[Rfam]
The family of this 116-nucleotide RNA from Ipomoea nil is "Small nucleolar RNA snoR100". Taxonomically the source falls in Ipomoea (Eukaryota, Embryophyta, Gunneridae, Pentapetalae). The family's consensus secondary structure was predicted with WAR. The match comes from Rfam's covariance-model search (100 bits). On this family, see Marker et al., Curr Biol 2002: "Experimental RNomics: identification of 140 candidates for small non-messenger RNAs in the plant Arabidopsis thaliana".
RNA sequence: UAAUGAAGGAAGCAUGGUAAUGUGCACGGAGAAUGAAUCAUUAGAGUCGUCAUGUCUGCUCCCUCUGACGCCCUUCUAGGGUUUAUGAUUAGGGGGCCUGGAUUAGACUCACAUUU
Numbered sequence: 001u002a003a004u005g006a007a008g009g010a011a012g013c014a015u016g017g018u019a020a021u022g023u024g025c026a027c028g029g030a031g032a033a034u035g036a037a038u039c040a041u042u043a044g045a046g047u048c049g050u051c052a053u054g055u056c057u058g059c060u061c062c063c064u065c066u067g068a069c070g071c072c073c074u075u076c077u078a079g080g081g082u083u084u085a086u087g088a089u090u091a092g093g094g095g096g097c098c099u100g101g102a103u104u105a106g107a108c109u110c111a112c113a114u115u116u
Stems, first nucleotide, its partner, number of pairs: 012025004043099002046097003054089003058083001060081001